A member of the RNA family "Glycine riboswitch aptamer" from Mycobacterium tuberculosis, 131 nucleotides long. Lineage of the source: Bacteria > Mycobacteriales > Mycobacteriaceae > Mycobacterium tuberculosis complex > Mycobacterium tuberculosis. The sequence is in the family's curated seed alignment.
RNA sequence: UGCCUCUGGAAAGCGGUGGCGACCCCUGGCGGUCCUCACCCGCCGAUGGGGAAAGGCGAUUCACCUGACGGUGGACAGAGUCGCCGAAUCUCUCAGGCGCCUGGCGUGCAGGUGAAGACAGAGGGAGAGGG
Numbered sequence: 001u002g003c004c005u006c007u008g009g010a011a012a013g014c015g016g017u018g019g020c021g022a023c024c025c026c027u028g029g030c031g032g033u034c035c036u037c038a039c040c041c042g043c044c045g046a047u048g049g050g051g052a053a054a055g056g057c058g059a060u061u062c063a064c065c066u067g068a069c070g071g072u073g074g075a076c077a078g079a080g081u082c083g084c085c086g087a088a089u090c091u092c093u094c095a096g097g098c099g100c101c102u103g104g105c106g107u108g109c110a111g112g113u114g115a116a117g118a119c120a121g122a123g124g125g126a127g128a129g130g131g
Base pairs, nucleotide, nucleotide: 001126003124004123005122006121007120008119015040016039017038018037042098043097044096045094046093049092050091051090055085056084057083058082059081060080061079062078